[Rfam]
RNA sequence: UAAGAGCGAUGAAGCGUGAGGUUGCUAUUCGAAAGAAUAGGUUUUCCGUGGAGCAAAUGUCAAUUUUCUAAAAAUGGCGACAA
Number, nucleotide and partner (000 for none) at each position: 001u000002a000003a000004g000005a000006g000007c000008g000009a000010u000011g000012a000013a000014g049015c048016g047017u000018g046019a045020g044021g043022u000023u000024g000025c040026u039027a038028u037029u036030c000031g000032a000033a000034a000035g000036a029037a028038u027039a026040g025041g000042u000043u021044u020045u019046c018047c016048g015049u014050g000051g000052a000053g000054c000055a000056a000057a000058u082059g081060u080061c079062a000063a000064u000065u077066u076067u000068c000069u000070a000071a000072a000073a000074a000075u000076g066077g065078c000079g061080a060081c059082a058083a000
This 83-nucleotide sequence from Lachnospiraceae bacterium XBB1006 belongs to the Rfam family "S10-Clostridia ribosomal protein leader".
A reference for the family is Eckert and Weinberg (2020), "Discovery of 20 novel ribosomal leader candidates in bacteria and archaea", BMC Microbiol.